[Rfam]
This 75-nucleotide RNA sequence from Crocodylus porosus belongs to the Rfam family "Mammalian CPEB3 ribozyme".
Taxonomically the source falls in Crocodylus (Eukaryota, Deuterostomia, Dipnotetrapodomorpha, Tetrapoda).
About the family: The mammalian CPEB3 ribozyme is a self cleaving RNA located in the second intron of the CPEB3 gene which belongs to a family of genes regulating messenger RNA polyadenylation.
It scores 49 bits against the family's covariance model.
The family's consensus secondary structure is taken from published work.
RNA sequence: AUUGUAAAUUCAAGGCUGUAGCAGAAGUGCCCAUAGCGCGGCCUGUCAGAUUCCAACGAAUCUGCAAAUUCUGCU
Numbered sequence: 001a002u003u004g005u006a007a008a009u010u011c012a013a014g015g016c017u018g019u020a021g022c023a024g025a026a027g028u029g030c031c032c033a034u035a036g037c038g039c040g041g042c043c044u045g046u047c048a049g050a051u052u053c054c055a056a057c058g059a060a061u062c063u064g065c066a067a068a069u070u071c072u073g074c075u
Stems, first nucleotide, its partner, number of pairs: 014043004020075007027039003047064007